[Rfam]
RNA sequence: UGACAGAGGGGCACCACCAGGAGUGGAGCCUGUGGCUUAAUUUGAUUCAACAUGGGAAGCCUCACCUGGCCCGGACACAGACAGGACUGAGAGAUUGAAAGCUCUUCCUCAAUUCCAUGGGUGGUGGUACAUAGCUGUUCUUAGUUUGUGGAGCGAUUUGUCUGGUUAAUUCCCAUAACAAACGAGAUUCUGUUGUGCUAACUAGUUACGCAGUGCCCAGGCAAUGGGCAUCCAACUUCUUACAGGAACAAGUGGCGUUCAGUCACCCAAGACUGAGCAAUAACAGGUCUGUGAUGCCCUUAACUGUCCAGGACCGCAUGUGUGCUGCGCUGGUUAGCUCAGCUUGUGCCUACCCCCUGCCAGCAGGCGUGGGUAACCCGUUGAACCCCAUUCAUGGUGGGGAUUGGGGAUUGCAGUUCUUGCCCAUGAAUGAGGAAUUCCCAGGAAAUGCGGCUCAUGUUGAUGUAGUCCCUGCCCUUUGUACAGACAACCCGUCAUUACUACUGACUGAGUGGUUUAGCGAGGUCCUCAGAUGGGCUCCAGUCCUGCUGGUGUGUGAGCGGACAGUGAAACUUGGCUAUCCUAGAAGAAG
Numbered sequence: 001u002g003a004c005a006g007a008g009g010g011g012c013a014c015c016a017c018c019a020g021g022a023g024u025g026g027a028g029c030c031u032g033u034g035g036c037u038u039a040a041u042u043u044g045a046u047u048c049a050a051c052a053u054g055g056g057a058a059g060c061c062u063c064a065c066c067u068g069g070c071c072c073g074g075a076c077a078c079a080g081a082c083a084g085g086a087c088u089g090a091g092a093g094a095u096u097g098a099a100a101g102c103u104c105u106u107c108c109u110c111a112a113u114u115c116c117a118u119g120g121g122u123g124g125u126g127g128u129a130c131a132u133a134g135c136u137g138u139u140c141u142u143a144g145u146u147u148g149u150g151g152a153g154c155g156a157u158u159u160g161u162c163u164g165g166u167u168a169a170u171u172c173c174c175a176u177a178a179c180a181a182a183c184g185a186g187a188u189u190c191u192g193u194u195g196u197g198c199u200a201a202c203u204a205g206u207u208a209c210g211c212a213g214u215g216c217c218c219a220g221g222c223a224a225u226g227g228g229c230a231u232c233c234a235a236c237u238u239c240u241u242a243c244a245g246g247a248a249c250a251a252g253u254g255g256c257g258u259u260c261a262g263u264c265a266c267c268c269a270a271g272a273c274u275g276a277g278c279a280a281u282a283a284c285a286g287g288u289c290u291g292u293g294a295u296g297c298c299c300u301u302a303a304c305u306g307u308c309c310a311g312g313a314c315c316g317c318a319u320g321u322g323u324g325c326u327g328c329g330c331u332g333g334u335u336a337g338c339u340c341a342g343c344u345u346g347u348g349c350c351u352a353c354c355c356c357c358u359g360c361c362a363g364c365a366g367g368c369g370u371g372g373g374u375a376a377c378c379c380g381u382u383g384a385a386c387c388c389c390a391u392u393c394a395u396g397g398u399g400g401g402g403a404u405u406g407g408g409g410a411u412u413g414c415a416g417u418u419c420u421u422g423c424c425c426a427u428g429a430a431u432g433a434g435g436a437a438u439u440c441c442c443a444g445g446a447a448a449u450g451c452g453g454c455u456c457a458u459g460u461u462g463a464u465g466u467a468g469u470c471c472c473u474g475c476c477c478u479u480u481g482u483a484c485a486g487a488c489a490a491c492c493c494g495u496c497a498u499u500a501c502u503a504c505u506g507a508c509u510g511a512g513u514g515g516u517u518u519a520g521c522g523a524g525g526u527c528c529u530c531a532g533a534u535g536g537g538c539u540c541c542a543g544u545c546c547u548g549c550u551g552g553u554g555u556g557u558g559a560g561c562g563g564a565c566a567g568u569g570a571a572a573c574u575u576g577g578c579u580a581u582c583c584u585a586g587a588a589g590a591a592g
Stems, first nucleotide, its partner, number of pairs: 001485002003482003007479007016469002020441005025328001027326003031322004035317002041056004065312005071306001076119002080115001089108001091106004123300002126298004132294001133292001134288003137284003144183006150159003164173002189276002192273001194246001196244001199242003204237004252266005332393002335390001337388001344380001346378001354373002358369004400431001405426004410421001447461004452456001488589001491586001494582001501576001503574001505572001508569001510568001513566002517564002520561002524557001527554001529552004535546004
Rfam assigns this 592-nucleotide part of an RNA from Athene cunicularia to the family "Eukaryotic small subunit ribosomal RNA". Its Rfam clan is "SSU clan".